mir-1302 microRNA precursor family: a 52-nucleotide RNA from Diceros bicornis. Lineage of the source: Eukaryota > Chordata > Theria > Laurasiatheria > Diceros bicornis. The family's consensus secondary structure was predicted with WAR.

RNA sequence: UUUUUAGUAUAAGGAUGUCUCAUGUGAUACUUGGGACAUCCUUAUACUAAAA
Numbered sequence: 001u002u003u004u005u006a007g008u009a010u011a012a013g014g015a016u017g018u019c020u021c022a023u024g025u026g027a028u029a030c031u032u033g034g035g036a037c038a039u040c041c042u043u044a045u046a047c048u049a050a051a052a
Base pairs, nucleotide, nucleotide: 006048007047008046009045010044011043012042014040015039016038018036019035020034021033022031